RNA: MIR528 microRNA precursor family
Organism: Panicum miliaceum
RNA sequence: GUGGAAGGGGCAUGCAGAGGAGCACGAGCUCUGGUUGGAAGCCGACCUGUGCUACCCUCGCUCGCUCUCCUGUGCCUGCCUCUUCCAUU
Numbered sequence: 001g002u003g004g005a006a007g008g009g010g011c012a013u014g015c016a017g018a019g020g021a022g023c024a025c026g027a028g029c030u031c032u033g034g035u036u037g038g039a040a041g042c043c044g045a046c047c048u049g050u051g052c053u054a055c056c057c058u059c060g061c062u063c064g065c066u067c068u069c070c071u072g073u074g075c076c077u078g079c080c081u082c083u084u085c086c087a088u089u
Base pairs, nucleotide, nucleotide: 001088002087003086004085005084006083007082008081009080010079011078012077014075015074016073018071019070020069021068022067024066